[Rfam]
RNA sequence: CACGCCUCCUCUUUACCCCUUCAUCCCUGUGUAGUCAUUCGUGUUGUCACUGACCGACCGCCCUUUGCGGUCGGUUUUUUU
Numbered sequence: 001c002a003c004g005c006c007u008c009c010u011c012u013u014u015a016c017c018c019c020u021u022c023a024u025c026c027c028u029g030u031g032u033a034g035u036c037a038u039u040c041g042u043g044u045u046g047u048c049a050c051u052g053a054c055c056g057a058c059c060g061c062c063c064u065u066u067g068c069g070g071u072c073g074g075u076u077u078u079u080u081u
Stems, first nucleotide, its partner, number of pairs: 013037001015035002019031001038053002041050003054074008

Overview: Rfam assigns this 81-nucleotide sequence from Erwinia pyrifoliae to the family "Hfq-regulated sRNA 13". Taxonomically the source falls in Erwinia (Bacteria, Pseudomonadota, Gammaproteobacteria, Enterobacterales). The family's consensus secondary structure was predicted with RNAfold. The literature on the family includes a 2014 paper in BMC Genomics by Zeng and Sundin, "Genome-wide identification of Hfq-regulated small RNAs in the fire blight pathogen Erwinia amylovora discovered small RNAs with virulence regulatory function". Gene Ontology term of the family: protein binding. It is annotated as a small RNA.